Annotation
A member of the RNA family "miR-430 microRNA precursor family" from Chanos chanos, 70 nucleotides long. Lineage of the source: Eukaryota > Bilateria > Craniata > Chanidae > Chanos. The match comes from Rfam's covariance-model search (70 bits). Gene Ontology terms of the family: RISC complex and miRNA-mediated post-transcriptional gene silencing. A reference for the family is Giraldez et al. (2005), "MicroRNAs regulate brain morphogenesis in zebrafish", Science.

[Rfam]
RNA sequence: GCGGGUACCUUAACAAUGGCACAGACUUGUUUUCAGUAUUUGGUAAGUGCUAUUUGUUGGGGUAGUGUUA
Numbered sequence: 001g002c003g004g005g006u007a008c009c010u011u012a013a014c015a016a017u018g019g020c021a022c023a024g025a026c027u028u029g030u031u032u033u034c035a036g037u038a039u040u041u042g043g044u045a046a047g048u049g050c051u052a053u054u055u056g057u058u059g060g061g062g063u064a065g066u067g068u069u070a
Base pairs, nucleotide, nucleotide: 004066006064007063008062009061010060011059013057014056015055016054018051019050020049021048022047025044026043027042